[Rfam]
RNA: ZMP/ZTP riboswitch aptamer (pfl RNA motif)
RNA sequence: CGCCGUUCGCGCGACUGGCGACUUUGGAUGGAGCACCAUCGGGAAGCGCGGGCAUAGCUGCCGCGCGCCUGGGCAAUAGCA
Numbered sequence: 001c002g003c004c005g006u007u008c009g010c011g012c013g014a015c016u017g018g019c020g021a022c023u024u025u026g027g028a029u030g031g032a033g034c035a036c037c038a039u040c041g042g043g044a045a046g047c048g049c050g051g052g053c054a055u056a057g058c059u060g061c062c063g064c065g066c067g068c069c070u071g072g073g074c075a076a077u078a079g080c081a
Base pairs, nucleotide, nucleotide: 005053006052007051008050009049010048011047012046015043016042017069018068019067020066028039029038030037031036059075060074061073062072